Shown here is a 75-nucleotide RNA sequence from Tetracentron sinense, a member of the family "Plastid-ycf2 5UTR RNA". It is annotated as a cis-regulatory element. About the family: Plastid ycf2 is a non-coding RNA (ncRNA) recognised in plastids. The organism belongs to Tetracentron, within Eukaryota. Pairs were carried over by alignment from the consensus structure, which was predicted with LocARNA.

RNA sequence: GUGCAUCCAAUAGGAAUUGAACUUACGAAUUUGUCAAUUAAGAGUUGGGCGCUUUAACAAUUCUGCCAUGGAUGC
Numbered sequence: 001g002u003g004c005a006u007c008c009a010a011u012a013g014g015a016a017u018u019g020a021a022c023u024u025a026c027g028a029a030u031u032u033g034u035c036a037a038u039u040a041a042g043a044g045u046u047g048g049g050c051g052c053u054u055u056a057a058c059a060a061u062u063c064u065g066c067c068a069u070g071g072a073u074g075c
Base pairs, nucleotide, nucleotide: 003075004074005073006072007071008070011025012024013023014022040069042067044066045065047063048062049061